Description:
A member of the RNA family "Manganese Mn2+ riboswitch aptamer (yybP-ykoY)" from Altericroceibacterium endophyticum, 185 nucleotides long. A search with the family's covariance model found it, with a score of 57 bits. Taxonomically the source falls in Altericroceibacterium (Bacteria, Pseudomonadati, Pseudomonadota, Sphingomonadales).
[Rfam]
RNA sequence: CGCGUGGUCAUCUGGGGAGUAGCCACCGCCUGCGGGCGGAUUCCAGCGUCAACAUACUUGGCCGAGAGGUCAUGGUGCUGGUGGAAUGUGCAAGCAUUCAGGCGAGACCAAUGACAUCACACCUCCUCCCGGCCGGGCAGGAUGUGCGGUGUCGUUGUGUGUCUUGCGCCCGGCUCGGAGUAAUC
Numbered sequence: 001c002g003c004g005u006g007g008u009c010a011u012c013u014g015g016g017g018a019g020u021a022g023c024c025a026c027c028g029c030c031u032g033c034g035g036g037c038g039g040a041u042u043c044c045a046g047c048g049u050c051a052a053c054a055u056a057c058u059u060g061g062c063c064g065a066g067a068g069g070u071c072a073u074g075g076u077g078c079u080g081g082u083g084g085a086a087u088g089u090g091c092a093a094g095c096a097u098u099c100a101g102g103c104g105a106g107a108c109c110a111a112u113g114a115c116a117u118c119a120c121a122c123c124u125c126c127u128c129c130c131g132g133c134c135g136g137g138c139a140g141g142a143u144g145u146g147c148g149g150u151g152u153c154g155u156u157g158u159g160u161g162u163c164u165u166g167c168g169c170c171c172g173g174c175u176c177g178g179a180g181u182a183a184u185c
Stems, first nucleotide, its partner, number of pairs: 026039002043081009059072005084185002087182003

Rfam describes the family as follows. This RNA was originally discovered in E. coli during a large scale screen and was named SraF. The family was later found to exist upstream of related families of protein genes in many bacteria, including the the yybP and ykoK genes in B. subtilis. The specific functions of these proteins are unknown, but this structured RNA element may be involved in their genetic regulation as a riboswitch.